A member of the RNA family "Small Cajal body specific RNA 16" from Prolemur simus, 183 nucleotides long. Rfam's curators write: scaRNAs are a specific class of small nuclear RNAs which localise to the Cajal bodies and guide the modification of RNA polymerase II transcribed spliceosomal RNAs U1, U2, U4, U5 and U12. ACA47 belongs to the H/ACA box class of guide RNAs as it has the predicted hairpin-hinge-hairpin-tail structure, the conserved H/ACA-box motifs and is found associated with GAR1. ACA47 is predicted to guide the pseudouridylation of residue U5 of the U1 spliceosomal snRNA. It scores 183 bits against the family's covariance model. Rfam links the family to the GO terms RNA processing and nucleolus. It is annotated as a small Cajal body RNA.
RNA sequence: AUGGUCUAGGGAAAGGCUCUUGUGCUGUUGAACCUGCCCAGUGAUAUGUGCAGCCUUGUACCGGGCAGCCCAACCCUGACCUAAAGUAAAUUUCCAGAAGUCUUUCCUGGGUUUUGAAUUGCAGUAACAGGUGUGAGCAUUCUAGCAGCAGUUAGAUGAUCAUGUAUGAUACUGCAAACAGGA
Numbered sequence: 001a002u003g004g005u006c007u008a009g010g011g012a013a014a015g016g017c018u019c020u021u022g023u024g025c026u027g028u029u030g031a032a033c034c035u036g037c038c039c040a041g042u043g044a045u046a047u048g049u050g051c052a053g054c055c056u057u058g059u060a061c062c063g064g065g066c067a068g069c070c071c072a073a074c075c076c077u078g079a080c081c082u083a084a085a086g087u088a089a090a091u092u093u094c095c096a097g098a099a100g101u102c103u104u105u106c107c108u109g110g111g112u113u114u115u116g117a118a119u120u121g122c123a124g125u126a127a128c129a130g131g132u133g134u135g136a137g138c139a140u141u142c143u144a145g146c147a148g149c150a151g152u153u154a155g156a157u158g159a160u161c162a163u164g165u166a167u168g169a170u171a172c173u174g175c176a177a178a179c180a181g182g183a
Base pairs, nucleotide, nucleotide: 003081004080005079006078009075010074015070016069017068018067019065020064021063022062024061027054028053029052030051032049033048093111094110095109097106098105099104119178120176121175122174123173124172125171126170128168129167134162135161136160138158139157140156141155144153145152146151